Shown here is a 379-nucleotide RNA from Virgibacillus indicus, a member of the family "Bacterial RNase P class B". A reference for the family is Brown (1999), "The Ribonuclease P Database", Nucleic Acids Res. Clan: RNaseP clan. Pairs were carried over by alignment from the consensus structure, which is taken from published work.

[Rfam]
RNA sequence: AUACUCAGGUAAUCGCUGCAUGUAAUAAUGCAGAGGAAAGUCCAUGCUCACACAAACUGAGAUGUUUGUAGUGUUCGUGCUUGACGAAAUCAUAAGUCAAGGUAGCAUUUAGUGCUAACGGCAGGGGAAAUUCCUAAGUCAAUUCUGAUAUGGAACACGAUCCUUGAAAGUGCCACAGUGACGGAGCUGGAGUGGAAACACUUCAGGUGGAACGAGGUAAACCCCGCGAGUGAGCAACCCAAAUAAUGGUAGGGGCAUCCUUUAGUAGGGAAUUCAACCAAACGAGGGACAGGCAUUUGCCUGUAGAUAGAUGAUUACAUCCGGUGUACGAGGCUGACCACCGUUUGAAGUACGAUGGAACAGAACAUGGCUUAUCGAG
Numbered sequence: 001a002u003a004c005u006c007a008g009g010u011a012a013u014c015g016c017u018g019c020a021u022g023u024a025a026u027a028a029u030g031c032a033g034a035g036g037a038a039a040g041u042c043c044a045u046g047c048u049c050a051c052a053c054a055a056a057c058u059g060a061g062a063u064g065u066u067u068g069u070a071g072u073g074u075u076c077g078u079g080c081u082u083g084a085c086g087a088a089a090u091c092a093u094a095a096g097u098c099a100a101g102g103u104a105g106c107a108u109u110u111a112g113u114g115c116u117a118a119c120g121g122c123a124g125g126g127g128a129a130a131u132u133c134c135u136a137a138g139u140c141a142a143u144u145c146u147g148a149u150a151u152g153g154a155a156c157a158c159g160a161u162c163c164u165u166g167a168a169a170g171u172g173c174c175a176c177a178g179u180g181a182c183g184g185a186g187c188u189g190g191a192g193u194g195g196a197a198a199c200a201c202u203u204c205a206g207g208u209g210g211a212a213c214g215a216g217g218u219a220a221a222c223c224c225c226g227c228g229a230g231u232g233a234g235c236a237a238c239c240c241a242a243a244u245a246a247u248g249g250u251a252g253g254g255g256c257a258u259c260c261u262u263u264a265g266u267a268g269g270g271a272a273u274u275c276a277a278c279c280a281a282a283c284g285a286g287g288g289a290c291a292g293g294c295a296u297u298u299g300c301c302u303g304u305a306g307a308u309a310g311a312u313g314a315u316u317a318c319a320u321c322c323g324g325u326g327u328a329c330g331a332g333g334c335u336g337a338c339c340a341c342c343g344u345u346u347g348a349a350g351u352a353c354g355a356u357g358g359a360a361c362a363g364a365a366c367a368u369g370g371c372u373u374a375u376c377g378a379g
Base pairs, nucleotide, nucleotide: 004379005378006377007375009318010317011316012315013314014313016033017032018031019030020029021028038373039372040371042370043369044368045367046366047234048233049232050231051230052069053068054067055066056065057064075229076228077227078226079225080101081100082099083098084097085096102119103117104116105115106114107113108112120224121223123164124163125162126161131155132154133153134152138149139148140147170222171221172218173217174216187206188205189204190203191202192201193200194199238254239253240252258288259287260286261285262284289304290303291302292301293300294299321358322357323356325354326353327352328351329350
By type it is a ribozyme.
The source organism's lineage runs through Bacteria, Bacillota, Bacilli, Bacillaceae and Virgibacillus.